[Rfam]
RNA sequence: AAGGGCCGCCCUCCUUUGGCGUAUCCUCCCUAAACUUGGGCCGGGCUCCGAAAGCGGCUCGGCCCUUUUUGCUAGGGGCG
Numbered sequence: 001a002a003g004g005g006c007c008g009c010c011c012u013c014c015u016u017u018g019g020c021g022u023a024u025c026c027u028c029c030c031u032a033a034a035c036u037u038g039g040g041c042c043g044g045g046c047u048c049c050g051a052a053a054g055c056g057g058c059u060c061g062g063c064c065c066u067u068u069u070u071g072c073u074a075g076g077g078g079c080g
Base pairs, nucleotide, nucleotide: 008020009019010018038065039064040063041062042061043060044059045058046057

The family of this 80-nucleotide sequence from Allobosea sp. OK403 is "Makes More Granules Regulator RNA (mmgR)". It is annotated as a small RNA. A search with the family's covariance model found it, with a score of 45 bits. Taxonomically the source falls in Allobosea (Bacteria, Pseudomonadati, Hyphomicrobiales, Alloboseaceae).